[Rfam]
RNA: DUF3800-I RNA
RNA sequence: UAAAUAUGCAGGUAGCAAUACACUGACUACCCGCGGUAUCGAGCAUUAUGCUUAAGCGUCUUGUAAAUUCGUCGACCGCGGGGGAGACACCCAUUUGGGUGUCUUUUUUUCGUGUG
Numbered sequence: 001u002a003a004a005u006a007u008g009c010a011g012g013u014a015g016c017a018a019u020a021c022a023c024u025g026a027c028u029a030c031c032c033g034c035g036g037u038a039u040c041g042a043g044c045a046u047u048a049u050g051c052u053u054a055a056g057c058g059u060c061u062u063g064u065a066a067a068u069u070c071g072u073c074g075a076c077c078g079c080g081g082g083g084g085a086g087a088c089a090c091c092c093a094u095u096u097g098g099g100u101g102u103c104u105u106u107u108u109u110u111c112g113u114g115u116g
Stems, first nucleotide, its partner, number of pairs: 009025003012021003030082006039075003042052003056072003061067001083106010